[Rfam]
RNA sequence: GAUUGUGUAUGAUGAUACCAUUUAUUUAAACAGUUAUCCCUGUCUGAUAAAUCUUGAUUGUAUAAAUGUGAUCUGACACAUAC
Numbered sequence: 001g002a003u004u005g006u007g008u009a010u011g012a013u014g015a016u017a018c019c020a021u022u023u024a025u026u027u028a029a030a031c032a033g034u035u036a037u038c039c040c041u042g043u044c045u046g047a048u049a050a051a052u053c054u055u056g057a058u059u060g061u062a063u064a065a066a067u068g069u070g071a072u073c074u075g076a077c078a079c080a081u082a083c
Base pairs, nucleotide, nucleotide: 001083004080005079006078007077

The family of this 83-nucleotide RNA from Mikania micrantha is "Small nucleolar RNA R38".
The family has 19 seed sequences and 2,295 matches in Rfam 15.1.
A search with the family's covariance model found it, with a score of 56 bits.
About the family: snoR38 is a C/D box small nucleolar RNA conserved across yeast, human, Arabidopsis and rice.
On this family, see Bachellerie et al., Trends Biochem Sci 1995: "Antisense snoRNAs: a family of nucleolar RNAs with long complementarities to rRNA".
The family's consensus secondary structure was predicted with PFOLD.
Its family is annotated with nucleolus and RNA processing in the Gene Ontology.
The family's RNA type in Rfam is C/D-box small nucleolar RNA.